[Rfam]
Shown here is an 81-nucleotide RNA from Clostridium kluyveri, a member of the family "ZMP/ZTP riboswitch aptamer (pfl RNA motif)". Taxonomically the source falls in Clostridium kluyveri (Bacteria, Bacillati, Clostridia, Clostridium). Rfam links the family to the GO terms one-carbon metabolic process and regulation of purine nucleotide biosynthetic process.

RNA sequence: AAUGUGUUGUAUGACUGACGGAAGUGGAUUCAACCACAGGGAGUACAGCGUUUUGGAAAGCCGACCGUCUGGGCAUGAUGC
Numbered sequence: 001a002a003u004g005u006g007u008u009g010u011a012u013g014a015c016u017g018a019c020g021g022a023a024g025u026g027g028a029u030u031c032a033a034c035c036a037c038a039g040g041g042a043g044u045a046c047a048g049c050g051u052u053u054u055g056g057a058a059a060g061c062c063g064a065c066c067g068u069c070u071g072g073g074c075a076u077g078a079u080g081c
Stems, first nucleotide, its partner, number of pairs: 004051009015040002017069005024037004058076001060074003